[Rfam]
RNA sequence: GUGUGCCUGGCUCCCUGUAUGCCAUUUGUGAAGUUCAUCAGAAGCUUGGUGGUCUCCGCAGAUGGCAUGCAAGGAGCCAUGCAUGC
Numbered sequence: 001g002u003g004u005g006c007c008u009g010g011c012u013c014c015c016u017g018u019a020u021g022c023c024a025u026u027u028g029u030g031a032a033g034u035u036c037a038u039c040a041g042a043a044g045c046u047u048g049g050u051g052g053u054c055u056c057c058g059c060a061g062a063u064g065g066c067a068u069g070c071a072a073g074g075a076g077c078c079a080u081g082c083a084u085g086c
Stems, first nucleotide, its partner, number of pairs: 001086006008079007016071009027060003